Rfam assigns this 112-nucleotide sequence from Echinicola vietnamensis to the family "SAM riboswitch aptamer (S box leader)". The literature on the family includes a 1998 paper in Mol Microbiol by Grundy and Henkin, "The S box regulon: a new global transcription termination control system for methionine and cysteine biosynthesis genes in gram-positive bacteria". Gene Ontology term of the family: regulation of gene expression. The match comes from Rfam's covariance-model search (66 bits).
[Rfam]
RNA sequence: GAUUUAUAAAGAAUAGGGGAGAGAACAGGCUCGAAGAACCUAUAGCAACCUAUCCCUCUCAACAAAGAAAAGGUGCUAAAUCCUGCCGAAAUCAUUUGAGGACCUAUAAAUG
Numbered sequence: 001g002a003u004u005u006a007u008a009a010a011g012a013a014u015a016g017g018g019g020a021g022a023g024a025a026c027a028g029g030c031u032c033g034a035a036g037a038a039c040c041u042a043u044a045g046c047a048a049c050c051u052a053u054c055c056c057u058c059u060c061a062a063c064a065a066a067g068a069a070a071a072g073g074u075g076c077u078a079a080a081u082c083c084u085g086c087c088g089a090a091a092u093c094a095u096u097u098g099a100g101g102a103c104c105u106a107u108a109a110a111u112g
Stems, first nucleotide, its partner, number of pairs: 002111007013043005021032003026085004044077004049073002051069001053068002086101002090097002